[Rfam]
RNA sequence: ACCCUCAAUGGCUCAGUAGCCAGUGUAGAUCCUGUCUUUCGUAAUCAGCAGCUACAUCUGGCUACUGGGUCUCUGAUGGCAUCU
Numbered sequence: 001a002c003c004c005u006c007a008a009u010g011g012c013u014c015a016g017u018a019g020c021c022a023g024u025g026u027a028g029a030u031c032c033u034g035u036c037u038u039u040c041g042u043a044a045u046c047a048g049c050a051g052c053u054a055c056a057u058c059u060g061g062c063u064a065c066u067g068g069g070u071c072u073c074u075g076a077u078g079g080c081a082u083c084u
Stems, first nucleotide, its partner, number of pairs: 013068006020061003023057006032051004
A member of the RNA family "mir-221 microRNA precursor family" from Macaca mulatta, 84 nucleotides long. Its family is annotated with RISC complex and miRNA-mediated post-transcriptional gene silencing in the Gene Ontology. It is one of the family's seed sequences.